This 72-nucleotide RNA sequence from Paraburkholderia panacisoli belongs to the Rfam family "int-alpA RNA".
The base pairs follow the family's consensus structure, which is taken from published work.
[Rfam]
RNA sequence: AGCACGGCUAUCUCGACGGAGAGAAAAGCGGGUUUGACCGCCCGCCUGCCGUGCCUUCCGAAACGGUCAAGA
Numbered sequence: 001a002g003c004a005c006g007g008c009u010a011u012c013u014c015g016a017c018g019g020a021g022a023g024a025a026a027a028g029c030g031g032g033u034u035u036g037a038c039c040g041c042c043c044g045c046c047u048g049c050c051g052u053g054c055c056u057u058c059c060g061a062a063a064c065g066g067u068c069a070a071g072a
Stems, first nucleotide, its partner, number of pairs: 002054007011022004028045005040068001
Rfam describes the family as follows. Acidobacteria (1 example), Planctomycetes (1 example), Proteobacteria.